A member of the RNA family "sodF sRNA", 93 nucleotides long. Its family is annotated with regulation of mRNA stability, mRNA binding and negative regulation of translation in the Gene Ontology.
RNA sequence: GCGCCCUGCCUCGUGAUCGUCUUCUCAACCUUCGCGCGGGCAGGCGGAAAGAGGGGAGAGCCCCCGCGAGGACGUGACUCGCGGGGGUUCUCC
Numbered sequence: 001g002c003g004c005c006c007u008g009c010c011u012c013g014u015g016a017u018c019g020u021c022u023u024c025u026c027a028a029c030c031u032u033c034g035c036g037c038g039g040g041c042a043g044g045c046g047g048a049a050a051g052a053g054g055g056g057a058g059a060g061c062c063c064c065c066g067c068g069a070g071g072a073c074g075u076g077a078c079u080c081g082c083g084g085g086g087g088u089u090c091u092c093c
Stems, first nucleotide, its partner, number of pairs: 002046002005044007013035004019029002055093016
Rfam classes the family as a small RNA.